Rfam assigns this 109-nucleotide RNA from Halomonas huangheensis to the family "t44 RNA". Rfam's curators write: This family consists of a number of bacterial RNA genes of between 135 and 170 bases in length. The t44 gene has been identified in several species of enteric bacteria but homologs have also been identified in Pseudomonas and Coxiella species. The t44 gene is found between the map and rpsB genes in all species in the full alignment apart from Shigella flexneri. The source organism's lineage runs through Bacteria, Gammaproteobacteria, Oceanospirillales, Halomonadaceae and Halomonas. A reference for the family is Tjaden et al. (2002), "Transcriptome analysis of Escherichia coli using high-density oligonucleotide probe arrays", Nucleic Acids Res.
[Rfam]
RNA sequence: UUACCCAAGCCUUGAAAACACACAUGUACCGUCACAUGGUCCCGGGUGCCGUUGGUUCGCGUCAAGUUCGCGCCGAGGGUCGGAUCCAUGGGGUACAUGGAGGCCUAAC
Number, nucleotide and partner (000 for none) at each position: 001u000002u000003a000004c000005c000006c000007a000008a000009g000010c000011c000012u000013u000014g000015a000016a000017a000018a000019c000020a000021c000022a000023c099024a098025u097026g096027u095028a094029c093030c092031g000032u000033c000034a000035c090036a089037u088038g087039g086040u084041c083042c082043c000044g000045g000046g000047u000048g080049c079050c078051g000052u076053u075054g074055g073056u072057u000058c000059g000060c000061g000062u000063c000064a000065a000066g000067u000068u000069c000070g000071c000072g056073c055074c054075g053076a052077g000078g050079g049080u048081c000082g042083g041084a040085u000086c039087c038088a037089u036090g035091g000092g030093g029094u028095a027096c026097a025098u024099g023100g000101a000102g000103g000104c000105c000106u000107a000108a000109c000